[Rfam]
RNA sequence: CAUACCAUGCCAAUGUUCAGAUUUGGUACUACAGUUCGUACUACCCCUUCUGCAUUGUCAUACAGGCCGUAAUACUUAGCCCAUUCAACAAAUUGAACGUUGCCAAGGCCUAAUAGGAAUAGGUGAUGACCAAGAAUAAAGGUCAACUUGUCUGGAUCAUCCCA
Number, nucleotide and partner (000 for none) at each position: 001c000002a000003u000004a000005c000006c000007a000008u000009g000010c000011c000012a000013a000014u000015g000016u000017u000018c000019a000020g000021a000022u000023u000024u000025g000026g000027u000028a000029c000030u000031a000032c000033a000034g000035u000036u000037c000038g000039u000040a000041c000042u000043a000044c000045c000046c000047c000048u000049u000050c000051u000052g000053c000054a000055u000056u000057g000058u000059c000060a000061u000062a000063c000064a000065g000066g000067c000068c000069g000070u000071a000072a000073u000074a000075c000076u000077u000078a000079g000080c000081c000082c000083a000084u000085u000086c000087a000088a000089c000090a000091a000092a000093u000094u000095g000096a000097a000098c000099g000100u000101u000102g000103c000104c000105a000106a000107g000108g000109c000110c000111u000112a000113a000114u000115a000116g000117g000118a000119a000120u000121a000122g161123g160124u159125g158126a157127u156128g000129a000130c155131c154132a153133a000134g151135a000136a000137u000138a000139a000140a000141g000142g000143u000144c000145a000146a000147c000148u000149u000150g000151u134152c000153u132154g131155g130156a127157u126158c125159a124160u123161c122162c000163c000164a000
RNA: Antisense RNA which regulates isiA expression
Organism: Prochlorococcus marinus